This 69-nucleotide sequence from Pseudolycoriella hygida belongs to the Rfam family "mir-12 microRNA precursor family". NCBI's taxonomy places the organism under Eukaryota, Hexapoda, Insecta, Eumetabola, Pseudolycoriella. Gene Ontology terms of the family: RISC complex and miRNA-mediated post-transcriptional gene silencing. The match comes from Rfam's covariance-model search (70 bits). Pairs were carried over by alignment from the consensus structure, which was predicted with RNAalifold. For this family Rfam cites "Functional and evolutionary insights from the genomes of three parasitoid Nasonia species" (Werren et al., Science, 2010).
[Rfam]
Nucleotides: 069
Base pairs, nucleotide, nucleotide: 002068003067004066005065006064009061010060011059012058015055016054017053018052021050022049023048024047025046026045027044028043029042
Number, partner (000 for none) and nucleotide at each position: 001000g002068u003067g004066g005065u006064g007000u008000g009061a010060g011059u012058a013000u014000u015055a016054c017053a018052u019000c020000a021050g022049g023048u024047a025046c026045u027044g028043g029042u030000u031000u032000c033000u034000a035000u036000c037000a038000a039000a040000c041000u042029a043028c044027c045026a046025g047024u048023a049022c050021u051000u052018a053017u054016g055015u056000u057000a058012u059011g060010c061009u062000u063000g064006u065005a066004c067003u068002a069000a